[Rfam]
RNA sequence: UCUGUCAACGGUAAAUCGUAAGACCGAAGGUCGAGAAUUUAGGGAGUUGAUAGACUGUCUGCA
Numbered sequence: 001u002c003u004g005u006c007a008a009c010g011g012u013a014a015a016u017c018g019u020a021a022g023a024c025c026g027a028a029g030g031u032c033g034a035g036a037a038u039u040u041a042g043g044g045a046g047u048u049g050a051u052a053g054a055c056u057g058u059c060u061g062c063a
Base pairs, nucleotide, nucleotide: 001054002053003052004051005050006049007048008047009046
Bacillus-plasmid RNA: a 63-nucleotide sequence from Priestia filamentosa. The base pairs follow the family's consensus structure, which is taken from published work.